RNA sequence: UGGGAGGUUGAUACACAGUUGAAGCUCAGACUGCUCUACUUGUCACAAAACCUCCCUAGAUUAUAAUUGCCUUCUGAUGACCGGGAUGAACUGAGGGAAAUCAUAACGGACAGAUACGGGGCAGACAAUC
Numbered sequence: 001u002g003g004g005a006g007g008u009u010g011a012u013a014c015a016c017a018g019u020u021g022a023a024g025c026u027c028a029g030a031c032u033g034c035u036c037u038a039c040u041u042g043u044c045a046c047a048a049a050a051c052c053u054c055c056c057u058a059g060a061u062u063a064u065a066a067u068u069g070c071c072u073u074c075u076g077a078u079g080a081c082c083g084g085g086a087u088g089a090a091c092u093g094a095g096g097g098a099a100a101u102c103a104u105a106a107c108g109g110a111c112a113g114a115u116a117c118g119g120g121g122c123a124g125a126c127a128a129u130c
Stems, first nucleotide, its partner, number of pairs: 002056006015043004023035003067124007081109003086104004
RNA: Small Cajal body specific RNA 8
Organism: Geotrypetes seraphini